[Rfam]
Rfam assigns this 95-nucleotide RNA sequence from Carlito syrichta to the family "Small nucleolar RNA SNORD116". Rfam links the family to the GO terms nucleolus and RNA processing. A search with the family's covariance model found it, with a score of 102 bits. By type it is a C/D-box small nucleolar RNA. Lineage of the source: Eukaryota > Mammalia > Theria > Boreoeutheria > Carlito. For this family Rfam cites "Identification of brain-specific and imprinted small nucleolar RNA genes exhibiting an unusual genomic organization" (Cavaille et al., Proc Natl Acad Sci U S A, 2000).
RNA sequence: GGAUCGAUGAUGAGUUUCUCAUAUAAACAUUCCUUGGAAAGCUGAACAAAAUGAGUGAAAACUCACAACCGUCGUUUUCAUCGGUACUGAGGUCC
Numbered sequence: 001g002g003a004u005c006g007a008u009g010a011u012g013a014g015u016u017u018c019u020c021a022u023a024u025a026a027a028c029a030u031u032c033c034u035u036g037g038a039a040a041g042c043u044g045a046a047c048a049a050a051a052u053g054a055g056u057g058a059a060a061a062c063u064c065a066c067a068a069c070c071g072u073c074g075u076u077u078u079c080a081u082c083g084g085u086a087c088u089g090a091g092g093u094c095c
Stems, first nucleotide, its partner, number of pairs: 001095005028057005034049003